[Rfam]
RNA: Fluoride riboswitch aptamer (crcB RNA motif)
Organism: Lentisphaerota bacterium
RNA sequence: AAAGUUAAAGGGAAUGGAGUUCUCCCUGAAACCGCCGAUUUUGGCUGAUGACUCCUGCCAGACG
Numbered sequence: 001a002a003a004g005u006u007a008a009a010g011g012g013a014a015u016g017g018a019g020u021u022c023u024c025c026c027u028g029a030a031a032c033c034g035c036c037g038a039u040u041u042u043g044g045c046u047g048a049u050g051a052c053u054c055c056u057g058c059c060a061g062a063c064g
Stems, first nucleotide, its partner, number of pairs: 010026004016055006034045004